[Rfam]
RNA sequence: CCAGGGGUUCCACCCCUGGCUACCAUCUGCCGCCCCUCCGGGGCU
Number, nucleotide and partner (000 for none) at each position: 001c019002c018003a017004g016005g015006g014007g013008u012009u000010c000011c000012a008013c007014c006015c005016c004017u003018g002019g001020c000021u000022a000023c000024c000025a000026u000027c000028u000029g000030c000031c000032g044033c043034c042035c041036c040037u000038c000039c000040g036041g035042g034043g033044c032045u000
Acido-Lenti-1 RNA: a 45-nucleotide RNA sequence from Gemmata sp. SH-PL17.
Rfam classes the family as a small RNA.
Lineage of the source: Bacteria > Planctomycetota > Planctomycetia > Gemmataceae > Gemmata.
The family's consensus secondary structure is taken from published work.